[Rfam]
A member of the RNA family "mir-31 microRNA precursor family" from Neodiprion lecontei, 81 nucleotides long. The family is grouped with related families in Rfam's "mir-31 microRNA precursor family". Rfam links the family to the GO terms gene silencing by miRNA and RISC complex. Rfam 15.1 lists 1,181 matches to the family in 783 species.
RNA sequence: GGACGUCAGGCAGGCAAGAUGUCGGCAUAGCUGAUGGGUUCGAAAGUUCGGCUGUGUCACAUCCAGCCAACCGCGCGUCCA
Numbered sequence: 001g002g003a004c005g006u007c008a009g010g011c012a013g014g015c016a017a018g019a020u021g022u023c024g025g026c027a028u029a030g031c032u033g034a035u036g037g038g039u040u041c042g043a044a045a046g047u048u049c050g051g052c053u054g055u056g057u058c059a060c061a062u063c064c065a066g067c068c069a070a071c072c073g074c075g076c077g078u079c080c081a
Stems, first nucleotide, its partner, number of pairs: 005076002009072002013068003018063004024058008